[Rfam]
Overview
Shown here is a 325-nucleotide RNA from Pelusios castaneus, a member of the family "Nuclear RNase P". Gene Ontology terms of the family: tRNA processing, ribonuclease P complex and ribonuclease P activity. Ribonuclease P (RNase P) is a ubiquitous endoribonuclease, found in archaea, bacteria and eukarya as well as chloroplasts and mitochondria. Its best characterised activity is the generation of mature 5'-ends of tRNAs by cleaving the 5'-leader elements of precursor-tRNAs. Cellular RNase Ps are ribonucleoproteins. Its Rfam clan is "RNaseP clan".

RNA sequence: GUCAGAGGGAAGCUCACCACUGAGGUCACAUGCUGGGUGUUUAUCACUCCCAAGUCAAUACCUUAGGGAAGGUCUGAGACAGGAGCCAAUGGCUGCCCUUGCAGGGCAUCACCUGAGGCAGGUGGAUGAGUUACCAGCAAUGUUGGGACUUCAGGUGGGACACUCAAAGGGCAGAAGAAGCUGGUUGAUGAUCUCUAAGUGGAUGCCCUUCCCCCCAGAGUAUUGGAACAGGCUCAUGGCUGGCAGUGCUGAGUUCAAUGGGCUGAGGUGAGACUAGUGUCCCUUGCACAUCUCAUAACCCAAUUCAGACUACUCUCCCUCUGGC
Numbered sequence: 001g002u003c004a005g006a007g008g009g010a011a012g013c014u015c016a017c018c019a020c021u022g023a024g025g026u027c028a029c030a031u032g033c034u035g036g037g038u039g040u041u042u043a044u045c046a047c048u049c050c051c052a053a054g055u056c057a058a059u060a061c062c063u064u065a066g067g068g069a070a071g072g073u074c075u076g077a078g079a080c081a082g083g084a085g086c087c088a089a090u091g092g093c094u095g096c097c098c099u100u101g102c103a104g105g106g107c108a109u110c111a112c113c114u115g116a117g118g119c120a121g122g123u124g125g126a127u128g129a130g131u132u133a134c135c136a137g138c139a140a141u142g143u144u145g146g147g148a149c150u151u152c153a154g155g156u157g158g159g160a161c162a163c164u165c166a167a168a169g170g171g172c173a174g175a176a177g178a179a180g181c182u183g184g185u186u187g188a189u190g191a192u193c194u195c196u197a198a199g200u201g202g203a204u205g206c207c208c209u210u211c212c213c214c215c216c217a218g219a220g221u222a223u224u225g226g227a228a229c230a231g232g233c234u235c236a237u238g239g240c241u242g243g244c245a246g247u248g249c250u251g252a253g254u255u256c257a258a259u260g261g262g263c264u265g266a267g268g269u270g271a272g273a274c275u276a277g278u279g280u281c282c283c284u285u286g287c288a289c290a291u292c293u294c295a296u297a298a299c300c301c302a303a304u305u306c307a308g309a310c311u312a313c314u315c316u317c318c319c320u321c322u323g324g325c
Base pairs, nucleotide, nucleotide: 001325002324003323004322008318009317010316013267014266015265016264017262018261021065022064023063024062025061035049036048037047038046039045074308075307076306077305078304084241085240086239087238094108095107096106097105098104109125110124111123112122113121114120126237127236128235129234130233131232132231148221149220150219151218268296269295270294271293272292273291